[Rfam]
Rfam assigns this 156-nucleotide RNA sequence from Firmicutes bacterium AF22-6AC to the family "Clostridiales-1 RNA".
The source organism's lineage runs through Bacteria, Bacillati and Bacillota.
By type it is a small RNA.
The family's consensus secondary structure is taken from published work.
RNA sequence: UAAUAACUCCCCCAUAGAAAGCAACCGUGACUGCUUGCAGGCAAAGGAGGCUUUCUAUGAGGGGAAUAAACAGCCAUGAGCAAGUAGGACGAAAGUCCGGAAUGCGAAUGGAUGUUACGAUUUCGGGAGUGCGAAGCACGAAGAAAUCGGUUAUUU
Numbered sequence: 001u002a003a004u005a006a007c008u009c010c011c012c013c014a015u016a017g018a019a020a021g022c023a024a025c026c027g028u029g030a031c032u033g034c035u036u037g038c039a040g041g042c043a044a045a046g047g048a049g050g051c052u053u054u055c056u057a058u059g060a061g062g063g064g065a066a067u068a069a070a071c072a073g074c075c076a077u078g079a080g081c082a083a084g085u086a087g088g089a090c091g092a093a094a095g096u097c098c099g100g101a102a103u104g105c106g107a108a109u110g111g112a113u114g115u116u117a118c119g120a121u122u123u124c125g126g127g128a129g130u131g132c133g134a135a136g137c138a139c140g141a142a143g144a145a146a147u148c149g150g151u152u153a154u155u156u
Stems, first nucleotide, its partner, number of pairs: 002155004008065004013059010025047002028044001029042001031040003070115003074111004080105003087098004118149007129139004
Dot-bracket structure: .((((..((((.((((((((((..((.((.(((....))).).).))..))))))))))..))))....(((.((((..(((....((((....))))....)))..)))).)))..(((((((....((((...))))...)))))))..)))).